[Rfam]
RNA sequence: ACCGGAUAGCUCGUCUAUCUGUAAGCCAACGGCGGUCUAUAAAGGAAUGAAUUCGUAUUUGGGUGGAAUUAACGGUGGCUGGGUUACUUUGUCGAAGAAAGUGUCUUGCAGAGAUUGAUGUCGGCAUUCGUACCUUGGCGUAGGCUGAGGUACGGAGGUUGCUAAGUACUGGGGUACUGCCCGAGGGUAGCAAUACAACAGGGAAAACUCAGAGCAUCAGAUCAGCUGUAAGAUAGCACGUCGGAGAAGUAUUCUUCAGCCAUUGCCAUCCUAUACGGGAACUCCUCCUUUUGU
Numbered sequence: 001a002c003c004g005g006a007u008a009g010c011u012c013g014u015c016u017a018u019c020u021g022u023a024a025g026c027c028a029a030c031g032g033c034g035g036u037c038u039a040u041a042a043a044g045g046a047a048u049g050a051a052u053u054c055g056u057a058u059u060u061g062g063g064u065g066g067a068a069u070u071a072a073c074g075g076u077g078g079c080u081g082g083g084u085u086a087c088u089u090u091g092u093c094g095a096a097g098a099a100a101g102u103g104u105c106u107u108g109c110a111g112a113g114a115u116u117g118a119u120g121u122c123g124g125c126a127u128u129c130g131u132a133c134c135u136u137g138g139c140g141u142a143g144g145c146u147g148a149g150g151u152a153c154g155g156a157g158g159u160u161g162c163u164a165a166g167u168a169c170u171g172g173g174g175u176a177c178u179g180c181c182c183g184a185g186g187g188u189a190g191c192a193a194u195a196c197a198a199c200a201g202g203g204a205a206a207a208c209u210c211a212g213a214g215c216a217u218c219a220g221a222u223c224a225g226c227u228g229u230a231a232g233a234u235a236g237c238a239c240g241u242c243g244g245a246g247a248a249g250u251a252u253u254c255u256u257c258a259g260c261c262a263u264u265g266c267c268a269u270c271c272u273a274u275a276c277g278g279g280a281a282c283u284c285c286u287c288c289u290u291u292u293g294u
Base pairs, nucleotide, nucleotide: 001036002035003034004020005019006018007017008016009015025033026032027031041291042290043289044288045287046286049283052281053280054279056277059273061271062270063269064268065267066266073265074264075263076262077261078260079259080258081254082253083252084251086250087249088248089247090246092244097242098241101239102238103237104236105232106231107230108229109228110227111226113223114222115220116219117218118217119216120215121214122161123160124159125158127156128155129154130153131152132151133150134149135148136147137146138145139144162166169212170211171210172209173208178205180203181202182201187196188195189194

Background:
Metazoan signal recognition particle RNA: a 294-nucleotide sequence from Phycomyces blakesleeanus. A search with the family's covariance model found it, with a score of 120 bits. The signal recognition particle (SRP) is a universally conserved ribonucleoprotein. It is involved in the co-translational targeting of proteins to membranes. The organism belongs to Phycomyces blakesleeanus, within Eukaryota. Gene Ontology terms of the family: signal recognition particle, endoplasmic reticulum targeting and SRP-dependent cotranslational protein targeting to membrane, signal sequence recognition.